[Rfam]
RNA sequence: GAAAAUCGCAAUUUUUAUCGUCGUGGUUAGUAGGCGCAUGGGCAGGAUGGCGUAGCCAUCCGGCGAAAGCUACCCAUGCGCGUUCCAAGGGCUCCUGACGGGGCUUUUUUUGUGCCUUGAA
Numbered sequence: 001g002a003a004a005a006u007c008g009c010a011a012u013u014u015u016u017a018u019c020g021u022c023g024u025g026g027u028u029a030g031u032a033g034g035c036g037c038a039u040g041g042g043c044a045g046g047a048u049g050g051c052g053u054a055g056c057c058a059u060c061c062g063g064c065g066a067a068a069g070c071u072a073c074c075c076a077u078g079c080g081c082g083u084u085c086c087a088a089g090g091g092c093u094c095c096u097g098a099c100g101g102g103g104c105u106u107u108u109u110u111u112g113u114g115c116c117u118u119g120a121a
Stems, first nucleotide, its partner, number of pairs: 009026001029117002034081009045061006063070002087107001089106007
This 121-nucleotide RNA from Phyllobacterium sp. YR620 belongs to the Rfam family "Rhizobiales sRNA Atu_C8". On this family, see Wilms et al., RNA Biol 2012: "Deep sequencing uncovers numerous small RNAs on all four replicons of the plant pathogen Agrobacterium tumefaciens". Pairs were carried over by alignment from the consensus structure, which was predicted with CMfinder. By type it is a small RNA.